[Rfam]
RNA sequence: GGGCUGGCUUUAGCUCAGCGGUUGCUUCAACAAUGCUUUCUAUGGUUAAAAACAACCACUCUGCGUGGUUCAAGACCUGUGGGUGCUCUCCAGCCCUUUU
Numbered sequence: 001g002g003g004c005u006g007g008c009u010u011u012a013g014c015u016c017a018g019c020g021g022u023u024g025c026u027u028c029a030a031c032a033a034u035g036c037u038u039u040c041u042a043u044g045g046u047u048a049a050a051a052a053c054a055a056c057c058a059c060u061c062u063g064c065g066u067g068g069u070u071c072a073a074g075a076c077c078u079g080u081g082g083g084u085g086c087u088c089u090c091c092a093g094c095c096c097u098u099u100u
Base pairs, nucleotide, nucleotide: 002095003094004093005092006091007090013084014083015082016081018080019079020078021077026074027073030070
RNA: Vault RNA
Organism: Saimiri boliviensis